[Rfam]
Overview
Cis-regulator of HTH transcription factor: a 233-nucleotide RNA from Gehongia tenuis. The base pairs follow the family's consensus structure, which was predicted with LocARNA. It is annotated as a cis-regulatory element. The source organism's lineage runs through Bacteria, Bacillati, Bacillota, Christensenellaceae and Gehongia.
RNA sequence: CUGUUUUACGCAUAGUUAAUCACCUCACUACAUUUUACUGUUCCUAAAGAAUUUGCAACAGGUACAGUAAAACGUAUUGUAAGGUUUAUCAGUUCCUAUGCACAGGUAAAUAUCAAAUUUAUAUACUGCUUGGCGGUAAUAAAAAAAACCCGUUGUCAGCAGUAACACUUUAAUACGCUCUUUUCGAUAAGACGACGGUUUAUACAGCCGCCGUUUUAUUUUUGCCUAACGGU
Numbered sequence: 001c002u003g004u005u006u007u008a009c010g011c012a013u014a015g016u017u018a019a020u021c022a023c024c025u026c027a028c029u030a031c032a033u034u035u036u037a038c039u040g041u042u043c044c045u046a047a048a049g050a051a052u053u054u055g056c057a058a059c060a061g062g063u064a065c066a067g068u069a070a071a072a073c074g075u076a077u078u079g080u081a082a083g084g085u086u087u088a089u090c091a092g093u094u095c096c097u098a099u100g101c102a103c104a105g106g107u108a109a110a111u112a113u114c115a116a117a118u119u120u121a122u123a124u125a126c127u128g129c130u131u132g133g134c135g136g137u138a139a140u141a142a143a144a145a146a147a148a149c150c151c152g153u154u155g156u157c158a159g160c161a162g163u164a165a166c167a168c169u170u171u172a173a174u175a176c177g178c179u180c181u182u183u184u185c186g187a188u189a190a191g192a193c194g195a196c197g198g199u200u201u202a203u204a205c206a207g208c209c210g211c212c213g214u215u216u217u218a219u220u221u222u223u224g225c226c227u228a229a230c231g232g233u
Stems, first nucleotide, its partner, number of pairs: 002112003007108002011100001015099002029076003033072004038067004043062003049056001078091002082087001124164007132157001133153004190216005196210005